[Rfam]
RNA sequence: UCGGUUCCGGUUCACGUGGGGCAAAUCCGCCCCGCGACCCGGCGCC
Numbered sequence: 001u002c003g004g005u006u007c008c009g010g011u012u013c014a015c016g017u018g019g020g021g022c023a024a025a026u027c028c029g030c031c032c033c034g035c036g037a038c039c040c041g042g043c044g045c046c
Stems, first nucleotide, its partner, number of pairs: 003046003007042004015036008
Overview
This 46-nucleotide sequence from Streptomyces sp. CNH287 belongs to the Rfam family "L31-Actinobacteria ribosomal protein leader". The literature on the family includes a 2020 paper in BMC Microbiol by Eckert and Weinberg, "Discovery of 20 novel ribosomal leader candidates in bacteria and archaea".